Rfam assigns this 120-nucleotide RNA sequence from Asticcacaulis sp. AC402 to the family "Caulobacter sRNA CrfA". The match comes from Rfam's covariance-model search (52 bits). The organism belongs to Asticcacaulis, within Bacteria. The family has 2 seed sequences and 41 matches in Rfam 15.1. Rfam classes the family as a small RNA. A reference for the family is Landt et al. (2008), "Small non-coding RNAs in Caulobacter crescentus", Mol Microbiol.
RNA sequence: GAGAACGGAACUUCUCCCGCAGAGAGAAGUCGGUUCCAGCGUUUCGGGGAGGAAACGCUCGUUUAAAAUAAAACAGAAAGCUCGCCGCGUGGUAUCCCCCUCGGCGGGCUUUUUUUUGCG
Numbered sequence: 001g002a003g004a005a006c007g008g009a010a011c012u013u014c015u016c017c018c019g020c021a022g023a024g025a026g027a028a029g030u031c032g033g034u035u036c037c038a039g040c041g042u043u044u045c046g047g048g049g050a051g052g053a054a055a056c057g058c059u060c061g062u063u064u065a066a067a068a069u070a071a072a073a074c075a076g077a078a079a080g081c082u083c084g085c086c087g088c089g090u091g092g093u094a095u096c097c098c099c100c101u102c103g104g105c106g107g108g109c110u111u112u113u114u115u116u117u118g119c120g
Stems, first nucleotide, its partner, number of pairs: 001037001003036004008031002012029002015026001017024001038059008064118004075114013089100001